[Rfam]
RNA sequence: CGUGAAGGACGACCUUCCUUUCCUCCCAUCAUAUCGCCGGGACGACCCGG
Numbered sequence: 001c002g003u004g005a006a007g008g009a010c011g012a013c014c015u016u017c018c019u020u021u022c023c024u025c026c027c028a029u030c031a032u033a034u035c036g037c038c039g040g041g042a043c044g045a046c047c048c049g050g
Stems, first nucleotide, its partner, number of pairs: 002019001004017005037050005
The family of this 50-nucleotide RNA from Aurantimonas coralicida is "Guanidine-II riboswitch aptamer (mini-ykkC)".
Rfam links the family to the GO term regulation of gene expression.